RNA sequence: CACAAUUUAUAUAAACUCACAUACAUUCGGCAAACAUAUUCCGGGGUGCCUGUUACCUGCUUAAAGGUGACUAUAGGUUGGAAAUAUGGAAUGUAUGAACGCUUAAC
Numbered sequence: 001c002a003c004a005a006u007u008u009a010u011a012u013a014a015a016c017u018c019a020c021a022u023a024c025a026u027u028c029g030g031c032a033a034a035c036a037u038a039u040u041c042c043g044g045g046g047u048g049c050c051u052g053u054u055a056c057c058u059g060c061u062u063a064a065a066g067g068u069g070a071c072u073a074u075a076g077g078u079u080g081g082a083a084a085u086a087u088g089g090a091a092u093g094u095a096u097g098a099a100c101g102c103u104u105a106a107c
Base pairs, nucleotide, nucleotide: 020097021096022095023094024093025092026091027090035088036087037086038085039084040082041081042080043079048078049077050076051075052074
The record is a 107-nucleotide sequence from Thalassotalea sp. ND16A, which matches "t44 RNA" in Rfam. By type it is a small RNA. Lineage of the source: Bacteria > Pseudomonadati > Pseudomonadota > Gammaproteobacteria > Thalassotalea. Rfam's curators write: This family consists of a number of bacterial RNA genes of between 135 and 170 bases in length. On this family, see Tjaden et al., Nucleic Acids Res 2002: "Transcriptome analysis of Escherichia coli using high-density oligonucleotide probe arrays".